[Rfam]
RNA sequence: AAGCAAUCACUCUGUGGCAGAUGAAUGAAACCAUCUGACCCAAUUUGAGCUGGCUAUACCAAGAAAGUCUAACUUAUUCUGGUGUUCUUUGCUCUAUGAGACAAGUCAUUACGUAAUGACUUUAUAUAA
Numbered sequence: 001a002a003g004c005a006a007u008c009a010c011u012c013u014g015u016g017g018c019a020g021a022u023g024a025a026u027g028a029a030a031c032c033a034u035c036u037g038a039c040c041c042a043a044u045u046u047g048a049g050c051u052g053g054c055u056a057u058a059c060c061a062a063g064a065a066a067g068u069c070u071a072a073c074u075u076a077u078u079c080u081g082g083u084g085u086u087c088u089u090u091g092c093u094c095u096a097u098g099a100g101a102c103a104a105g106u107c108a109u110u111a112c113g114u115a116a117u118g119a120c121u122u123u124a125u126a127u128a129a
Stems, first nucleotide, its partner, number of pairs: 010049003013042002016039001018037006065122005070115002075113001077111001080108004088101003
A member of the RNA family "Small nucleolar RNA SNORA28" from Castor canadensis, 129 nucleotides long.
The base pairs follow the family's consensus structure, which was predicted with RNAfold.
The literature on the family includes a 2001 paper in EMBO J by Huttenhofer et al., "RNomics: an experimental approach that identifies 201 candidates for novel, small, non-messenger RNAs in mouse".
ACA28 is a member of the H/ACA class of snoRNA that guide the sites of modification of uridines to pseudouridines.
The match comes from Rfam's covariance-model search (92 bits).